[Rfam]
RNA sequence: AUAUUUCUGGAGUAUUCGUGGAGCUCUUAUUUUGAACCUACAGAGCUUACAAGGGAGUUCAAUAUUUUGAUGUGAAUUUUUCUAUAAGACCUUAAUAAAGUUAUUAAGGCAUGAGCAUUGAAACAUCUGUGAGGACACCCACCUAUCGGAGAGAUAGGUGUCAAAAUCGGAGCAGCGGUAUUUUGGAGUUUAA
Dot-bracket structure: ..(.(((((((((((.(((.........((((((((((..............(((.((((...(..(.(((((.................................................))))).))..)))).)))................))).))))))).......)))))))))))))).)...

The family of this 193-nucleotide RNA from Clostridium novyi is "6S / SsrS RNA". The family has 150 seed sequences and 5,006 matches in Rfam 15.1. A reference for the family is Wassarman and Storz (2000), "6S RNA regulates E. coli RNA polymerase activity", Cell. Pairs were carried over by alignment from the consensus structure, which is taken from published work. The family's RNA type in Rfam is non-coding RNA gene. Lineage of the source: Bacteria > Clostridia > Eubacteriales > Clostridium > Clostridium novyi.